[Rfam]
RNA sequence: AAUUAAGGAACGCAGGCUAAAAACGCCACGUCCUGUGGAACGCCUGCAUGACCCGCGUCCUGCGGG
Numbered sequence: 001a002a003u004u005a006a007g008g009a010a011c012g013c014a015g016g017c018u019a020a021a022a023a024c025g026c027c028a029c030g031u032c033c034u035g036u037g038g039a040a041c042g043c044c045u046g047c048a049u050g051a052c053c054c055g056c057g058u059c060c061u062g063c064g065g066g
Stems, first nucleotide, its partner, number of pairs: 012047006026038004052066005
The family of this 66-nucleotide RNA sequence from Bacillus sp. NRRL B-14911 is "Bacillaceae-1 RNA".
Rfam's curators put it in the seed alignment.
Taxonomically the source falls in Bacillus (Bacteria, Bacillati, Bacilli, Caryophanales).